Shown here is a 44-nucleotide sequence from Thalassotalea marina, a member of the family "Guanidine-II riboswitch aptamer (mini-ykkC)".
The literature on the family includes a 2007 paper in Nucleic Acids Res by Weinberg et al., "Identification of 22 candidate structured RNAs in bacteria using the CMfinder comparative genomics pipeline".

RNA sequence: AAGUGAGGACGACCUCACCGCUCUACUCAAAAGGGGACGGCCCC
Numbered sequence: 001a002a003g004u005g006a007g008g009a010c011g012a013c014c015u016c017a018c019c020g021c022u023c024u025a026c027u028c029a030a031a032a033g034g035g036g037a038c039g040g041c042c043c044c
Base pairs, nucleotide, nucleotide: 003018004017005016006015007014008013033044034043035042036041